[Rfam]
Shown here is a 141-nucleotide RNA from Pogona vitticeps, a member of the family "Small nucleolar RNA SNORA57". U99 belongs to the H/ACA class of snoRNAs which are thought to guide the sites of modification of uridines to pseudouridines, the target for this family is unknown. The family's consensus secondary structure was predicted with PFOLD. It scores 125 bits against the family's covariance model. For this family Rfam cites "Identification of 13 novel human modification guide RNAs" (Vitali et al., Nucleic Acids Res, 2003). It is annotated as an H/ACA-box small nucleolar RNA. Its family is annotated with RNA processing and nucleolus in the Gene Ontology.
RNA sequence: CCUCCUUUUCUUGGCAGGUCCGGGUCUCACCGUGCCCGGCUCUGUAAUGUCCGGAGGCAAAGGGAUGCCCACCCAGUGUUCUGUCUUCGGUGCCAGUGGCUUUGCCAUCCGCUGGUUCUAUCCUCAACCACUGGGACAAAG
Numbered sequence: 001c002c003u004c005c006u007u008u009u010c011u012u013g014g015c016a017g018g019u020c021c022g023g024g025u026c027u028c029a030c031c032g033u034g035c036c037c038g039g040c041u042c043u044g045u046a047a048u049g050u051c052c053g054g055a056g057g058c059a060a061a062g063g064g065a066u067g068c069c070c071a072c073c074c075a076g077u078g079u080u081c082u083g084u085c086u087u088c089g090g091u092g093c094c095a096g097u098g099g100c101u102u103u104g105c106c107a108u109c110c111g112c113u114g115g116u117u118c119u120a121u122c123c124u125c126a127a128c129c130a131c132u133g134g135g136a137c138a139a140a141g
Stems, first nucleotide, its partner, number of pairs: 001057005015044004020039001022037004074133005093115007